This 182-nucleotide RNA from Clostridium sp. AM33-3 belongs to the Rfam family "glmS glucosamine-6-phosphate activated ribozyme aptamer". Rfam classes the family as a riboswitch. Lineage of the source: Bacteria > Bacillati > Bacillota > Clostridia > Clostridium. The family's consensus secondary structure is taken from published work. A search with the family's covariance model found it, with a score of 62 bits.

[Rfam]
RNA sequence: AGCAAAGCUAUAGCGCCAUGCACCUGAGGACUGUACGUGAAAGCUGCAGAGCUGGUUUUUCAGGUUAACGAGGUGGAGAGAUCAUCGAAAAUUCGGCGGGUACUCUCCCAUGCUUCUCCGGGCGUGUAUAUUCUGUGAAAUAUGCGGGCAACCGCAAAACAAACGCAGGAUAACCGGAGAGU
Numbered sequence: 001a002g003c004a005a006a007g008c009u010a011u012a013g014c015g016c017c018a019u020g021c022a023c024c025u026g027a028g029g030a031c032u033g034u035a036c037g038u039g040a041a042a043g044c045u046g047c048a049g050a051g052c053u054g055g056u057u058u059u060u061c062a063g064g065u066u067a068a069c070g071a072g073g074u075g076g077a078g079a080g081a082u083c084a085u086c087g088a089a090a091a092u093u094c095g096g097c098g099g100g101u102a103c104u105c106u107c108c109c110a111u112g113c114u115u116c117u118c119c120g121g122g123c124g125u126g127u128a129u130a131u132u133c134u135g136u137g138a139a140a141u142a143u144g145c146g147g148g149c150a151a152c153c154g155c156a157a158a159a160c161a162a163a164c165g166c167a168g169g170a171u172a173a174c175c176g177g178a179g180a181g182u
Stems, first nucleotide, its partner, number of pairs: 022065007030057001075108005085096004109126006129172007143156005
Dot-bracket structure: .....................(((((((.(..........................).))))))).........(((((.....((((....)))).......)))))((((((......))))))..(((((((.......(((((....))))).........)))))))..........